[Rfam]
RNA sequence: GAGGUGCGGGUUGAAUACCGAGCGAACUAUUCUUUCACCUUUUACUAAAGAAUACCGUGUGCUCGGCCCACUGAAGCACCAUGGCCUUAAUUUUUGGCAGGGGUUUUCUUUGCAGGAAUC
Numbered sequence: 001g002a003g004g005u006g007c008g009g010g011u012u013g014a015a016u017a018c019c020g021a022g023c024g025a026a027c028u029a030u031u032c033u034u035u036c037a038c039c040u041u042u043u044a045c046u047a048a049a050g051a052a053u054a055c056c057g058u059g060u061g062c063u064c065g066g067c068c069c070a071c072u073g074a075a076g077c078a079c080c081a082u083g084g085c086c087u088u089a090a091u092u093u094u095u096g097g098c099a100g101g102g103g104u105u106u107u108c109u110u111u112g113c114a115g116g117a118a119u120c
Stems, first nucleotide, its partner, number of pairs: 003080004009068006016061003028054008102120006
Dot-bracket structure: ..((((..((((((.(((.........((((((((...........))))))))....))).))))))........)))).....................((((((.......))))))
Rfam assigns this 120-nucleotide RNA from Ceratopteris richardii to the family "U5 spliceosomal RNA". Rfam's curators write: U5 RNA is a component of both types of known spliceosome. The precise function of this molecule is unknown, though it is known that the 5' loop is required for splice site selection and p220 binding, and that both the 3' stem-loop and the Sm site are important for Sm protein binding and cap methylation. Lineage of the source: Eukaryota > Embryophyta > Tracheophyta > Parkerioideae > Ceratopteris. A reference for the family is Hinz et al. (1996), "Domain analysis of human U5 RNA. Cap trimethylation, protein binding, and spliceosome assembly", J Biol Chem.